RNA sequence: CGCUUAUAGAGAAAGGCGGAGGGAGUAGACCCGCUGAAGCCUUAGCAACCUGAUACUCUUCAAGGUGCUAAAUUCUACUUCUGUCAAUAAUGGUCGAAGAAAGAUAAGCU
Numbered sequence: 001c002g003c004u005u006a007u008a009g010a011g012a013a014a015g016g017c018g019g020a021g022g023g024a025g026u027a028g029a030c031c032c033g034c035u036g037a038a039g040c041c042u043u044a045g046c047a048a049c050c051u052g053a054u055a056c057u058c059u060u061c062a063a064g065g066u067g068c069u070a071a072a073u074u075c076u077a078c079u080u081c082u083g084u085c086a087a088u089a090a091u092g093g094u095c096g097a098a099g100a101a102a103g104a105u106a107a108g109c110u
Stems, first nucleotide, its partner, number of pairs: 002109006013043005021032003026077004044069004049065002051062003073102001078099004083094003

Rfam assigns this 110-nucleotide RNA from Sphingobacterium sp. SGG-5 to the family "SAM riboswitch aptamer (S box leader)".